[Rfam]
RNA sequence: UAACCCUUGCUACAAGUGCUCUCAAACCAAGACCUAUAGGCACUAUAAUACUUCGUCUUUUAUCCAGUAGUGAGGGAUUACUGGAAAUAAGUUUCACA
Numbered sequence: 001u002a003a004c005c006c007u008u009g010c011u012a013c014a015a016g017u018g019c020u021c022u023c024a025a026a027c028c029a030a031g032a033c034c035u036a037u038a039g040g041c042a043c044u045a046u047a048a049u050a051c052u053u054c055g056u057c058u059u060u061u062a063u064c065c066a067g068u069a070g071u072g073a074g075g076g077a078u079u080a081c082u083g084g085a086a087a088u089a090a091g092u093u094u095c096a097c098a
Stems, first nucleotide, its partner, number of pairs: 015044005021039002029059005064084007
RNA: PhotoRC-II RNA